[Rfam]
Rfam assigns this 78-nucleotide RNA sequence from Chanos chanos to the family "mir-27 microRNA precursor family".
Rfam links the family to the GO terms miRNA-mediated post-transcriptional gene silencing and RISC complex.
RNA sequence: CGUGGCAGCAGAACUUAAGCCACAUGUGAACGUUGUACAAAACCUCCACGUUCACAGUGGUUAAGUUCUGCCACCCUA
Dot-bracket structure: ..........((((((((.(.....(((((((................)))))))...).))))))))..........
Numbered sequence: 001c002g003u004g005g006c007a008g009c010a011g012a013a014c015u016u017a018a019g020c021c022a023c024a025u026g027u028g029a030a031c032g033u034u035g036u037a038c039a040a041a042a043c044c045u046c047c048a049c050g051u052u053c054a055c056a057g058u059g060g061u062u063a064a065g066u067u068c069u070g071c072c073a074c075c076c077u078a
Stems, first nucleotide, its partner, number of pairs: 011068008020059001026055007
Rfam 15.1 lists 1,440 matches to the family in 645 species. A search with the family's covariance model found it, with a score of 59 bits.